Notes:
This 73-nucleotide RNA from Ixodes scapularis belongs to the Rfam family "mir-219 microRNA precursor family". Its family is annotated with miRNA-mediated post-transcriptional gene silencing and RISC complex in the Gene Ontology. Lineage of the source: Eukaryota > Arthropoda > Ixodoidea > Ixodinae > Ixodes. Rfam's curators put it in the seed alignment. Pairs were carried over by alignment from the consensus structure, which was predicted with RNAalifold. The literature on the family includes a 2003 paper in Science by Lim et al., "Vertebrate microRNA genes".

RNA sequence: CCAAGCUGUGAUUGUCCAAACGCAAUUCUUGUGCGAUCGUUACCAAGAACUGUGUCGGGACAUCAGGGUUUGG
Numbered sequence: 001c002c003a004a005g006c007u008g009u010g011a012u013u014g015u016c017c018a019a020a021c022g023c024a025a026u027u028c029u030u031g032u033g034c035g036a037u038c039g040u041u042a043c044c045a046a047g048a049a050c051u052g053u054g055u056c057g058g059g060a061c062a063u064c065a066g067g068g069u070u071u072g073g
Stems, first nucleotide, its partner, number of pairs: 002072006009065004014061004021054004026049006